[Rfam]
RNA sequence: AUUUCCAGGGAUGUUAUAGAAUAUGACCAUGCUAAUUCUGAUUUCAUGACGACUUACAAAUUAGCUGAGGAAAUC
Dot-bracket structure: (((((................................................................))))).
Annotation:
The family of this 75-nucleotide RNA sequence from Taxus chinensis is "Small nucleolar RNA snoR53Y". A search with the family's covariance model found it, with a score of 48 bits. On this family, see Brown et al., RNA 2001: "Multiple snoRNA gene clusters from Arabidopsis". Rfam 15.1 lists 513 matches to the family in 230 species.